The record is a 154-nucleotide RNA sequence from Erwinia tracheiphila, which matches "Group II catalytic intron D1-D4-4" in Rfam. Pairs were carried over by alignment from the consensus structure. For this family Rfam cites "Control of branch-site choice by a group II intron" (Chu et al., EMBO J, 2001). From the family's description: Group II introns are found in rRNA, tRNA and mRNA of organelles in fungi, plants and protists, and also in mRNA in bacteria. Taxonomically the source falls in Erwinia (Bacteria, Gammaproteobacteria, Enterobacterales, Erwiniaceae). Gene Ontology term of the family: Group II intron splicing.
RNA sequence: UUGCAGGUGAGAGUCCUGCCACGGUAGUUGGUUAAUUUGACCGUGUAGCUAUGGCGUACGUGUGGAAGGUGACUGAAACGCGGGAACAGCGCCGGAUAAACGUUGUCCCAGCCCCAGACAGUGGGCGCGCGCAAAUACACAGCCCGUAACUGAC
Numbered sequence: 001u002u003g004c005a006g007g008u009g010a011g012a013g014u015c016c017u018g019c020c021a022c023g024g025u026a027g028u029u030g031g032u033u034a035a036u037u038u039g040a041c042c043g044u045g046u047a048g049c050u051a052u053g054g055c056g057u058a059c060g061u062g063u064g065g066a067a068g069g070u071g072a073c074u075g076a077a078a079c080g081c082g083g084g085a086a087c088a089g090c091g092c093c094g095g096a097u098a099a100a101c102g103u104u105g106u107c108c109c110a111g112c113c114c115c116a117g118a119c120a121g122u123g124g125g126c127g128c129g130c131g132c133a134a135a136u137a138c139a140c141a142g143c144c145c146g147u148a149a150c151u152g153a154c
Stems, first nucleotide, its partner, number of pairs: 020045005053093005059082005067074002103123001131147002